The family of this 40-nucleotide sequence from Polerovirus TRIYSV is "Putative RNA-dependent RNA polymerase ribosomal frameshift site". On this family, see Hauser et al., Arch Virol 2002: "Biological properties and molecular characterization of beet chlorosis virus (BChV)". It is annotated as a frameshift element.
[Rfam]
Nucleotides: 040
Stems, first nucleotide, its partner, number of pairs: 013028005020039003
Number, partner (000 for none) and nucleotide at each position: 001000g002000g003000g004000a005000a006000a007000c008000g009000a010000g011000a012000a013028g014027g015026c016025g017024g018000c019000a020039g021038c022037g023000u024017c025016c026015g027014c028013c029000u030000c031000a032000a033000c034000a035000a036000a037022c038021g039020c040000a